[Rfam]
RNA sequence: CUAUUCUAAUAGCAUUUUACUCGUAUAAUCGCAGGAAUAAGGCCUGCAAGUUUCUACCGGCUUACCGUAAAUAAGCUGACUAUGAGUGGAAAAUGAAAUAAG
Numbered sequence: 001c002u003a004u005u006c007u008a009a010u011a012g013c014a015u016u017u018u019a020c021u022c023g024u025a026u027a028a029u030c031g032c033a034g035g036a037a038u039a040a041g042g043c044c045u046g047c048a049a050g051u052u053u054c055u056a057c058c059g060g061c062u063u064a065c066c067g068u069a070a071a072u073a074a075g076c077u078g079a080c081u082a083u084g085a086g087u088g089g090a091a092a093a094u095g096a097a098a099u100a101a102g
Base pairs, nucleotide, nucleotide: 018088019087020086021085022084023083024082025081029049031047032046033045034044035043058078059077060076061075062074063073064072

The family of this 102-nucleotide sequence from Psychrobacillus sp. FJAT-21963 is "Purine riboswitch aptamer". Its family is annotated with purine nucleobase biosynthetic process in the Gene Ontology. The match comes from Rfam's covariance-model search (88 bits).